A member of the RNA family "Molybdenum/Tungsten riboswitch aptamer (Moco RNA motif)" from Cloacimonas acidaminivorans, 119 nucleotides long. Lineage of the source: Bacteria > Pseudomonadati > Cloacimonadaceae (SeqCode) > Cloacimonas (SeqCode) > Cloacimonas acidaminivorans (SeqCode). The match comes from Rfam's covariance-model search (76 bits). Pairs were carried over by alignment from the consensus structure, which is taken from published work.
[Rfam]
RNA sequence: UUUUUUGAAAAAAGCCGAGCGCAUAUUCCUAAACCCCUUUGGUAUGGAAUUGCGCCAUUGGGUAUAAUUGGAAACGAUUAUGCCUCCCGUAUUUGGAAAGGCAACAGUGGAAAUAUAAC
Numbered sequence: 001u002u003u004u005u006u007g008a009a010a011a012a013a014g015c016c017g018a019g020c021g022c023a024u025a026u027u028c029c030u031a032a033a034c035c036c037c038u039u040u041g042g043u044a045u046g047g048a049a050u051u052g053c054g055c056c057a058u059u060g061g062g063u064a065u066a067a068u069u070g071g072a073a074a075c076g077a078u079u080a081u082g083c084c085u086c087c088c089g090u091a092u093u094u095g096g097a098a099a100g101g102c103a104a105c106a107g108u109g110g111a112a113a114u115a116u117a118a119c
Stems, first nucleotide, its partner, number of pairs: 003113002006110001014102003019055005025050005033043003060085011086096002